[Rfam]
RNA sequence: AGAGGCCCUCUGUGGCUGGGGUGGAAUGCUUGCCUCAUUGCUGUGGCAAUGAAACAAGCAUUCUUCCAGGCCGCUCAAGCUGCCCUC
Numbered sequence: 001a002g003a004g005g006c007c008c009u010c011u012g013u014g015g016c017u018g019g020g021g022u023g024g025a026a027u028g029c030u031u032g033c034c035u036c037a038u039u040g041c042u043g044u045g046g047c048a049a050u051g052a053a054a055c056a057a058g059c060a061u062u063c064u065u066c067c068a069g070g071c072c073g074c075u076c077a078a079g080c081u082g083c084c085c086u087c
Base pairs, nucleotide, nucleotide: 004084005083006082012074013073014072015071016070017069020067021066023064024063025062026061027060028059029058030057031056032055037050038049039048040047041046
RNA: mir-9195 microRNA precursor family
Organism: Pipistrellus kuhlii